The family of this 109-nucleotide RNA from Allosaccharopolyspora coralli is "Glycine riboswitch aptamer". Its Rfam clan is "Glycine riboswitch clan". NCBI's taxonomy places the organism under Bacteria, Actinomycetota, Actinomycetes, Pseudonocardiales, Allosaccharopolyspora.
[Rfam]
RNA sequence: CGACGUCGAGCGGGAGAGACCCCACCCGGUGUGCCUCGCACCCGGACCGGGGCGCCGAAGGAGCAAUCCUCCCUCCAAACUCUCAGGCCACAGACACCGCUCGGUACCA
Numbered sequence: 001c002g003a004c005g006u007c008g009a010g011c012g013g014g015a016g017a018g019a020c021c022c023c024a025c026c027c028g029g030u031g032u033g034c035c036u037c038g039c040a041c042c043c044g045g046a047c048c049g050g051g052g053c054g055c056c057g058a059a060g061g062a063g064c065a066a067u068c069c070u071c072c073c074u075c076c077a078a079a080c081u082c083u084c085a086g087g088c089c090a091c092a093g094a095c096a097c098c099g100c101u102c103g104g105u106a107c108c109a
Base pairs, nucleotide, nucleotide: 006104007103008102009101010100011099012098013097020052021051022050023049054088055087056086057084058083061082062081063080